The family of this 100-nucleotide RNA sequence from Sarcina sp. DSM 11001 is "Glycine riboswitch aptamer". The source organism's lineage runs through Bacteria, Bacillati, Clostridia, Eubacteriales and Sarcina. Its family is annotated with glycine biosynthetic process in the Gene Ontology.
RNA sequence: GGAUGUCACUCUGGAGAAUCUCAUUUUUGUGUGAGUACCGAAGGUGCAAAGCGGCCUGUACGCCGCCGAAACUCUCAGGUCAAAGGACAGGGUCUUUUCA
Numbered sequence: 001g002g003a004u005g006u007c008a009c010u011c012u013g014g015a016g017a018a019u020c021u022c023a024u025u026u027u028u029g030u031g032u033g034a035g036u037a038c039c040g041a042a043g044g045u046g047c048a049a050a051g052c053g054g055c056c057u058g059u060a061c062g063c064c065g066c067c068g069a070a071a072c073u074c075u076c077a078g079g080u081c082a083a084a085g086g087a088c089a090g091g092g093u094c095u096u097u098u099c100a
Stems, first nucleotide, its partner, number of pairs: 008093006020035004037080003040076002044074001046072001051066005